RNA sequence: CCGGGGGCGCGUUCCCCGGCCGUCCGCGGACCAGCUGACACCGGUACCUGGUACGGCCGGUGCAG
Number, nucleotide and partner (000 for none) at each position: 001c029002c028003g027004g000005g025006g024007g023008c022009g021010c000011g000012u000013u000014c000015c000016c000017c000018g000019g000020c000021c009022g008023u007024c006025c005026g000027c003028g002029g001030a000031c000032c000033a000034g000035c065036u064037g063038a000039c062040a061041c060042c059043g058044g057045u056046a000047c000048c000049u000050g000051g000052u000053a000054c000055g000056g045057c044058c043059g042060g041061u040062g039063c037064a036065g035
Rfam assigns this 65-nucleotide sequence from Actinomadura chibensis to the family "L17-Actino-Proteobacteria ribosomal protein leader". Taxonomically the source falls in Actinomadura (Bacteria, Actinomycetota, Actinomycetes, Thermomonosporaceae). By type it is a cis-regulatory leader. It scores 53 bits against the family's covariance model.